[Rfam]
RNA sequence: AAAGUCCCGUGAAAGGAGUUGUCCGUACGCCUUUUUAGCACUGGGAAGCGGCGUCCGAGUAAUCGGGGGUCGUAAGUUUCCCAAGGGCAAAGCAGCAGGCCGCAACGCAAGUGAACCUAGACGUAGCCUCGUAACACGAAUGGAGAAGCCGACCCUCUCGUCUGAAGGGGAAGGCCGUUGGAUGAGCGCUGGAAUAACGGAAGUGGCGCGCAUCGACUCCCGGGGUAUCAGGGGU
Numbered sequence: 001a002a003a004g005u006c007c008c009g010u011g012a013a014a015g016g017a018g019u020u021g022u023c024c025g026u027a028c029g030c031c032u033u034u035u036u037a038g039c040a041c042u043g044g045g046a047a048g049c050g051g052c053g054u055c056c057g058a059g060u061a062a063u064c065g066g067g068g069g070u071c072g073u074a075a076g077u078u079u080c081c082c083a084a085g086g087g088c089a090a091a092g093c094a095g096c097a098g099g100c101c102g103c104a105a106c107g108c109a110a111g112u113g114a115a116c117c118u119a120g121a122c123g124u125a126g127c128c129u130c131g132u133a134a135c136a137c138g139a140a141u142g143g144a145g146a147a148g149c150c151g152a153c154c155c156u157c158u159c160g161u162c163u164g165a166a167g168g169g170g171a172a173g174g175c176c177g178u179u180g181g182a183u184g185a186g187c188g189c190u191g192g193a194a195u196a197a198c199g200g201a202a203g204u205g206g207c208g209c210g211c212a213u214c215g216a217c218u219c220c221c222g223g224g225g226u227a228u229c230a231g232g233g234g235u
Stems, first nucleotide, its partner, number of pairs: 012034005019025001022202001036090001038088002042083004046078002048073005054067005123229001124227001126226006142220004148175003153169004181214004186209005
RNA: Group II catalytic intron D1-D4-6